[Rfam]
RNA sequence: GUCUUUCCCGGGCAAUCAGCCCGGGCCUCAUUGAAGC
Numbered sequence: 001g002u003c004u005u006u007c008c009c010g011g012g013c014a015a016u017c018a019g020c021c022c023g024g025g026c027c028u029c030a031u032u033g034a035a036g037c
Stems, first nucleotide, its partner, number of pairs: 007025007

The family of this 37-nucleotide sequence from Propylenella binzhouense is "CRISPR RNA direct repeat element". Rfam links the family to the GO term defense response. A search with the family's covariance model found it, with a score of 37 bits.